[Rfam]
RNA sequence: AAAAAUCGCAGUGACUGACGACAAUGCGGAAUGGACCGCUGGGGAGCUGCGUCUAUGUAUAGCCGGUCGUCUGGGCAGAGACA
Numbered sequence: 001a002a003a004a005a006u007c008g009c010a011g012u013g014a015c016u017g018a019c020g021a022c023a024a025u026g027c028g029g030a031a032u033g034g035a036c037c038g039c040u041g042g043g044g045a046g047c048u049g050c051g052u053c054u055a056u057g058u059a060u061a062g063c064c065g066g067u068c069g070u071c072u073g074g075g076c077a078g079a080g081a082c083a
Stems, first nucleotide, its partner, number of pairs: 004054001007051006015043002017071005026039004060078001062076003